[Rfam]
RNA sequence: UUUUGAGUUCGGCAUUUUUCUCGUAUAUGUGCAGGAAUGGGCCUGCAUGUUUCUACCCGAUCACCGGAAUGAUUGGACUACGGGGAAACCAUGAUAUGUA
Numbered sequence: 001u002u003u004u005g006a007g008u009u010c011g012g013c014a015u016u017u018u019u020c021u022c023g024u025a026u027a028u029g030u031g032c033a034g035g036a037a038u039g040g041g042c043c044u045g046c047a048u049g050u051u052u053c054u055a056c057c058c059g060a061u062c063a064c065c066g067g068a069a070u071g072a073u074u075g076g077a078c079u080a081c082g083g084g085g086a087a088a089c090c091a092u093g094a095u096a097u098g099u100a
Stems, first nucleotide, its partner, number of pairs: 018086008029048007057076007

Purine riboswitch aptamer: a 100-nucleotide RNA from Paenibacillus apis. NCBI's taxonomy places the organism under Bacteria, Bacillota, Caryophanales, Paenibacillaceae, Paenibacillus. Riboswitches are metabolite binding domains within certain messenger RNAs that serve as precision sensors for their corresponding targets.